[Rfam]
RNA sequence: CACUGAUGGGCCUGAAUCGUUGCUCUUACCUGUGCAUUUAUAUAUAGGUGAGCAAACUUUCAGGUGUGUUAGUGC
Dot-bracket structure: .((((((..((((((....((.(((...(((..............))).))).))....))))))..))))))..